The record is a 78-nucleotide RNA from Jaculus jaculus, which matches "mir-3473 microRNA precursor family" in Rfam. The source organism's lineage runs through Eukaryota, Dipnotetrapodomorpha, Eutheria, Boreoeutheria and Jaculus.
[Rfam]
RNA sequence: AUCGCUAAGCCAUCUCUCCAGCCCCAGAAAAUAUUUUUAAAAUAAUACAAAAGAGGGCUGGAGAGAUGGCUUAGCGGU
Numbered sequence: 001a002u003c004g005c006u007a008a009g010c011c012a013u014c015u016c017u018c019c020a021g022c023c024c025c026a027g028a029a030a031a032u033a034u035u036u037u038u039a040a041a042a043u044a045a046u047a048c049a050a051a052a053g054a055g056g057g058c059u060g061g062a063g064a065g066a067u068g069g070c071u072u073a074g075c076g077g078u
Stems, first nucleotide, its partner, number of pairs: 002077023